[Rfam]
RNA sequence: AUCAAAAUCCGGCCAAAACCGUUAGGUGCGGGGGAAAAUAUCGAAAGUGCAUGUCCGGUUGUUUAACCGUAAAAAGCACUAGGGGUGAAUCGCGUUAAGCGUAGGGCUGAUCUCCCAGUCCGAAUCCGACAGCUAACCUCGCCGGCCCAACCAGGAGGACAC
Numbered sequence: 001a002u003c004a005a006a007a008u009c010c011g012g013c014c015a016a017a018a019c020c021g022u023u024a025g026g027u028g029c030g031g032g033g034g035a036a037a038a039u040a041u042c043g044a045a046a047g048u049g050c051a052u053g054u055c056c057g058g059u060u061g062u063u064u065a066a067c068c069g070u071a072a073a074a075a076g077c078a079c080u081a082g083g084g085g086u087g088a089a090u091c092g093c094g095u096u097a098a099g100c101g102u103a104g105g106g107c108u109g110a111u112c113u114c115c116c117a118g119u120c121c122g123a124a125u126c127c128g129a130c131a132g133c134u135a136a137c138c139u140c141g142c143c144g145g146c147c148c149a150a151c152c153a154g155g156a157g158g159a160c161a162c
Stems, first nucleotide, its partner, number of pairs: 011147004018027003028142006039081001083127003091101003104121004
Annotation
Rfam assigns this 162-nucleotide RNA from Cohnella lupini to the family "c-di-AMP riboswitch aptamer (ydaO/yuaA leader)". Pairs were carried over by alignment from the consensus structure. Rfam describes the family as follows. This family represents a conserved RNA structure found upstream of the ydaO and yuaA genes in Bacillus subtilis and related genes in other bacteria. The ydaO/yuaA element is thought to act as a genetic 'off' switch for the ydaO and yuaA genes in its native state. It is believed that the element may be triggered during osmotic shock leading to activation of ydaO, a predicted amino acid transporter gene, and members of the yuaA-yubG operon which code for KtrA and KtrB K+ transporters. NCBI's taxonomy places the organism under Bacteria, Bacillati, Bacilli, Paenibacillaceae, Cohnella. It scores 78 bits against the family's covariance model.